Overview
This 56-nucleotide sequence belongs to the Rfam family "Plastid-ccsA-ndhD-1 3UTR RNA".
RNA sequence: AACCAGGCGAGAACCGUGUGAAUCAAGUAGUGUAGUGAUUCACGUGGUUCUCACAA
Numbered sequence: 001a002a003c004c005a006g007g008c009g010a011g012a013a014c015c016g017u018g019u020g021a022a023u024c025a026a027g028u029a030g031u032g033u034a035g036u037g038a039u040u041c042a043c044g045u046g047g048u049u050c051u052c053a054c055a056a
Stems, first nucleotide, its partner, number of pairs: 007054001009052017

On this family, see Richter et al., Plant Commun 2023: "Retrograde signaling in plants: A critical review focusing on the GUN pathway and beyond". From the family's description: Plastid-ccsA-ndhD-1 is a non-coding RNA (ncRNA) recognised in plastids. It was found in the three prime untranslated region (3UTR) of ccsA and ndhD genes, its 3UTR location suggests a role in transcript maturation.